[Rfam]
Nucleotides: 147
Stems, first nucleotide, its partner, number of pairs: 001132004010032002033127006043052002053112003061087012090106004
Number, partner (000 for none) and nucleotide at each position: 001132c002131g003130c004129c005000u006000g007000g008000a009000a010032u011031u012000g013000c014000c015000g016000g017000g018000a019000a020000u021000u022000g023000a024000g025000u026000c027000g028000a029000g030000g031011g032010a033127a034126c035125c036124g037123g038122g039000g040000a041000a042000c043052c044051a045000c046000c047000c048000u049000c050000u051044u052043g053112g054111g055110g056000u057000g058000a059000a060000u061087c062086g063085g064084g065083c066082g067081c068080c069079u070078c071077u072076u073000g074000c075000c076072a077071g078070g079069g080068g081067g082066c083065g084064c085063u086062c087061g088000u089000a090106g091105g092104a093103g094000a095000c096000c097000u098000u099000c100000c101000u102000g103093c104092u105091c106090c107000g108000a109000a110055c111054c112053c113000g114000u115000c116000a117000g118000c119000u120000a121000a122038c123037c124036c125035g126034g127033u128000a129004g130003g131002c132001g133000a134000g135000a136000a137000g138000g139000a140000a141000g142000g143000a144000a145000a146000g147000g